[Rfam]
RNA sequence: GGUCAUGAGACCCAGCGACAAGCCCUGGCUUGCUGGGCGGCAACCCUCACGGACGUGGCGGGGUGCUCCAGGUGACGACCGGGCGCGACCAACCCUCGCGCAAGCACUCCAC
Dot-bracket structure: ((((....(.((((((....((......)).)))))))(((..(((.(.(......))..))).))).........))))..((((((.......))))))...........

Description: Rfam assigns this 112-nucleotide sequence from Luteipulveratus halotolerans to the family "SAM (S-adenosyl methionine) riboswitch aptamer". The source organism's lineage runs through Bacteria, Actinomycetes, Micrococcales, Dermacoccaceae and Luteipulveratus.